[Rfam]
RNA sequence: GGGAGCGUGUGGCCGGCUGGUGCCGCCCUCGGUCUUCAAAACCGAUGAGGGAUCGUGAAAGCGACCCCUGGUGGGUUCGAUUCCCAUACGCUCCC
Numbered sequence: 001g002g003g004a005g006c007g008u009g010u011g012g013c014c015g016g017c018u019g020g021u022g023c024c025g026c027c028c029u030c031g032g033u034c035u036u037c038a039a040a041a042c043c044g045a046u047g048a049g050g051g052a053u054c055g056u057g058a059a060a061g062c063g064a065c066c067c068c069u070g071g072u073g074g075g076u077u078c079g080a081u082u083c084c085c086a087u088a089c090g091c092u093c094c095c
Stems, first nucleotide, its partner, number of pairs: 001095009012027001014025004029045005048069004072086004